[Rfam]
RNA sequence: CUGUUUUCGUCUACCCUGUAGAUCGAGCUGUGUGUUUUGAAGUGUUCAUACACAAGCUAGACUGCAAGGUGAACGACAAAAUGA
Numbered sequence: 001c002u003g004u005u006u007u008c009g010u011c012u013a014c015c016c017u018g019u020a021g022a023u024c025g026a027g028c029u030g031u032g033u034g035u036u037u038u039g040a041a042g043u044g045u046u047c048a049u050a051c052a053c054a055a056g057c058u059a060g061a062c063u064g065c066a067a068g069g070u071g072a073a074c075g076a077c078a079a080a081a082u083g084a
Base pairs, nucleotide, nucleotide: 012071013070014069015068018065019064020063021062023061024060026058027057028056029055031054032053033052034051035050039046